[Rfam]
RNA sequence: AAAAAGAUCGGCCUUCUCUUCCCAGUUCUUCCCAGACUCGGAAAGCUGGGUUGAGAGAGCAAAAAUAAAAAAAA
Numbered sequence: 001a002a003a004a005a006g007a008u009c010g011g012c013c014u015u016c017u018c019u020u021c022c023c024a025g026u027u028c029u030u031c032c033c034a035g036a037c038u039c040g041g042a043a044a045g046c047u048g049g050g051u052u053g054a055g056a057g058a059g060c061a062a063a064a065a066u067a068a069a070a071a072a073a074a
Stems, first nucleotide, its partner, number of pairs: 014057005021050005029042001032041002

The record is a 74-nucleotide sequence from Cebus imitator, which matches "mir-320 microRNA precursor family" in Rfam. NCBI's taxonomy places the organism under Eukaryota, Chordata, Teleostomi, Cebidae, Cebus. Gene Ontology terms of the family: positive regulation of stem cell proliferation, cellular response to glucose stimulus and RISC complex. The base pairs follow the family's consensus structure, which was predicted with RNAalifold.